[Rfam]
Nucleotides: 109
Stems, first nucleotide, its partner, number of pairs: 006099006022042002025040004043064009076085003
Number, partner (000 for none) and nucleotide at each position: 001000u002000a003000a004000a005000u006099u007098a008097g009096a010095g011094a012000u013000a014000a015000a016000a017000a018000c019000a020000c021000a022042g023041u024000u025040u026039u027038g028037g029000u030000u031000g032000g033000u034000a035000g036000u037028c038027c039026a040025a041023a042022c043064c044063u045062g046061u047060c048059u049058a050057u051056a052000u053000u054000c055000u056051u057050a058049u059048a060047g061046a062045u063044g064043g065000a066000a067000g068000u069000a070000a071000c072000c073000u074000u075000c076085c077084c078083u079000c080000c081000u082000g083078g084077g085076g086000u087000c088000g089000u090000c091000c092000c093000u094011u095010c096009u097008c098007u099006a100000u101000g102000u103000c104000a105000a106000a107000u108000u109000u